[Rfam]
RNA sequence: AGGAGGAUUGAGAAAGUUAAGCAGCUGCAUUUGUUCUGCAUUAACUGGUUAUAACCUCCUAGAGAAAAAAACAAGUGCUUAAGUGCUUUUUAAUUUUCUGUAUGAAGUAGUCAUUGCAAUGCUUGUGUACAUUUC
Number, nucleotide and partner (000 for none) at each position: 001a000002g059003g058004a057005g056006g055007a000008u000009u000010g000011a000012g000013a000014a000015a046016g045017u044018u043019a041020a000021g039022c038023a037024g036025c000026u000027g000028c000029a000030u000031u000032u000033g000034u000035u000036c024037u023038g022039c021040a000041u019042u000043a018044a017045c016046u015047g000048g000049u000050u000051a000052u000053a000054a000055c006056c005057u004058c003059c002060u000061a000062g000063a000064g000065a000066a000067a000068a000069a000070a000071a000072c000073a000074a000075g000076u127077g126078c125079u000080u000081a123082a000083g000084u000085g000086c000087u000088u000089u000090u000091u000092a114093a000094u110095u109096u000097u000098c107099u106100g000101u000102a000103u000104g000105a000106a099107g098108u000109a095110g094111u000112c000113a000114u092115u000116g000117c000118a000119a000120u000121g000122c000123u081124u000125g078126u077127g076128u000129a000130c000131a000132u000133u000134u000135c000
RNA: Small nucleolar RNA SNORA47